The record is a 149-nucleotide sequence from Modestobacter italicus, which matches "c-di-AMP riboswitch aptamer (ydaO/yuaA leader)" in Rfam.
Pairs were carried over by alignment from the consensus structure.

[Rfam]
RNA sequence: UGCCUCAUCAGAACCCAGGGCAGGGGUGGGGGACCCACGAACUCGGCGCACAUGCCUCCGGCAGUGCGCCUCGGGGUGAAGCCGCGGACCGCGGCCGGGCACCGAUCGCCCGAACCCGACAGCUGACCCCGCAGGCGGUGAUCGGAGAU
Numbered sequence: 001u002g003c004c005u006c007a008u009c010a011g012a013a014c015c016c017a018g019g020g021c022a023g024g025g026g027u028g029g030g031g032g033a034c035c036c037a038c039g040a041a042c043u044c045g046g047c048g049c050a051c052a053u054g055c056c057u058c059c060g061g062c063a064g065u066g067c068g069c070c071u072c073g074g075g076g077u078g079a080a081g082c083c084g085c086g087g088a089c090c091g092c093g094g095c096c097g098g099g100c101a102c103c104g105a106u107c108g109c110c111c112g113a114a115c116c117c118g119a120c121a122g123c124u125g126a127c128c129c130c131g132c133a134g135g136c137g138g139u140g141a142u143c144g145g146a147g148a149u
Stems, first nucleotide, its partner, number of pairs: 001137004008025002026132006036073001074117003082094004097111004